The record is a 235-nucleotide RNA, which matches "IS605-orfB-I RNA" in Rfam. The family's RNA type in Rfam is small RNA.
Nucleotides: 235
Stems, first nucleotide, its partner, number of pairs: 001052002004048005010040003014036002017034005022028001071143008084131006094123002097120006147164005153232006159184001166178003169174001189225006196218002200215005
Number, partner (000 for none) and nucleotide at each position: 001052g002051c003000u004048g005047c006046g007045u008044a009000a010040a011039u012038g013000c014036u015035a016000c017034u018033u019032a020031g021030c022028c023000c024000a025000a026000g027000a028022g029000a030021g031020c032019u033018a034017g035015u036014a037000u038012c039011a040010u041000c042000c043000c044008u045007g046006c047005g048004u049000u050000g051002g052001c053000a054000u055000a056000a057000a058000u059000c060000u061000c062000a063000u064000a065000a066000u067000a068000g069000a070000a071143c072142g073141a074140u075139a076138u077137g078136g079000u080000a081000a082000g083000g084131u085130g086129g087128a088127u089126u090000g091000u092000a093000a094123u095122c096000a097120c098119u099118u100117a101116a102115g103000a104000a105000u106000a107000u108000g109000a110000a111000a112000a113000u114000a115102u116101u117100u118099g119098a120097g121000a122095g123094a124000g125000a126089a127088a128087u129086c130085c131084a132000a133000u134000a135000g136078u137077u138076a139075u140074a141073u142072c143071g144000u145000a146000a147164u148163g149162g150161u151160u152000a153232a154231c155230c156229g157228u158227a159184u160151g161150a162149c163148c164147a165000c166178a167177g168176g169174a170000g171000a172000g173000u174169u175000a176168c177167c178166u179000g180000g181000a182000a183000c184159a185000u186000u187000a188000u189225g190224a191223a192222a193221u194220a195000u196218u197217g198000g199000a200215g201214a202213a203212u204211u205000u206000a207000u208000u209000a210000g211204a212203a213202u214201u215200c216000a217197c218196a219000c220194u221193g222192u223191u224190u225189u226000u227158u228157a229156c230155g231154g232153u233000g234000a235000u
The sequence is in the family's curated seed alignment.